[Rfam]
RNA: Fluoride riboswitch aptamer (crcB RNA motif)
RNA sequence: GGUCGCAGCGGAGAUGGCAUGCCUCCGAGAACCGCCCGUGAGGGCCGAUGAUGCCUACCAGGCC
Numbered sequence: 001g002g003u004c005g006c007a008g009c010g011g012a013g014a015u016g017g018c019a020u021g022c023c024u025c026c027g028a029g030a031a032c033c034g035c036c037c038g039u040g041a042g043g044g045c046c047g048a049u050g051a052u053g054c055c056u057a058c059c060a061g062g063c064c
Base pairs, nucleotide, nucleotide: 010026011025012024013023016055017054018053019052020051034045035044036043037042